[Rfam]
RNA sequence: UUUUACAGCUUCUAAGGUAACUAUUUGAGGGUCCAUUAGGGAGAAAUCCCUAAUGCAAAUCGGGUGAAUUGCUGGAACUCCCUUAGAGCCAUUCUUCCUACAACAUAACCGGAAACGGUAGGUGUGAAAGGUUGAAAAAAGAAUGGAUUGGAUAAUCAGCAGCCAAGCUCCUGUGCCGAAAGGCUGGAGAAGGUUCAACGACUAAGACGUACCACCUAAAGCUUAUGCCAUGGUGAUGAGGUCUGUAGGAAGUGAGGUCUUCCGAAGUGCCCGACAACCAAGAAUGUUUUGGUUGAAGAUAUAGUCUGGCAAUUACUGAAAGGUAAUU
Numbered sequence: 001u002u003u004u005a006c007a008g009c010u011u012c013u014a015a016g017g018u019a020a021c022u023a024u025u026u027g028a029g030g031g032u033c034c035a036u037u038a039g040g041g042a043g044a045a046a047u048c049c050c051u052a053a054u055g056c057a058a059a060u061c062g063g064g065u066g067a068a069u070u071g072c073u074g075g076a077a078c079u080c081c082c083u084u085a086g087a088g089c090c091a092u093u094c095u096u097c098c099u100a101c102a103a104c105a106u107a108a109c110c111g112g113a114a115a116c117g118g119u120a121g122g123u124g125u126g127a128a129a130g131g132u133u134g135a136a137a138a139a140a141g142a143a144u145g146g147a148u149u150g151g152a153u154a155a156u157c158a159g160c161a162g163c164c165a166a167g168c169u170c171c172u173g174u175g176c177c178g179a180a181a182g183g184c185u186g187g188a189g190a191a192g193g194u195u196c197a198a199c200g201a202c203u204a205a206g207a208c209g210u211a212c213c214a215c216c217u218a219a220a221g222c223u224u225a226u227g228c229c230a231u232g233g234u235g236a237u238g239a240g241g242u243c244u245g246u247a248g249g250a251a252g253u254g255a256g257g258u259c260u261u262c263c264g265a266a267g268u269g270c271c272c273g274a275c276a277a278c279c280a281a282g283a284a285u286g287u288u289u290u291g292g293u294u295g296a297a298g299a300u301a302u303a304g305u306c307u308g309g310c311a312a313u314u315a316c317u318g319a320a321a322g323g324u325a326a327u328u
Base pairs, nucleotide, nucleotide: 001031002030003029004028040049041048042047060274061273062272063271065269066268070161071160072159073158074157075156079152080151081150162194163193169188170187171186198307200306201305202304203303204302277293278292279291280290281289282288283287313326314325315324316323317322
Group I catalytic intron: a 328-nucleotide RNA sequence from Peptoclostridium acidaminophilum. Lineage of the source: Bacteria > Bacillota > Clostridia > Peptostreptococcales > Peptoclostridium acidaminophilum. A reference for the family is Cech (1990), "Self-splicing of group I introns", Annu Rev Biochem.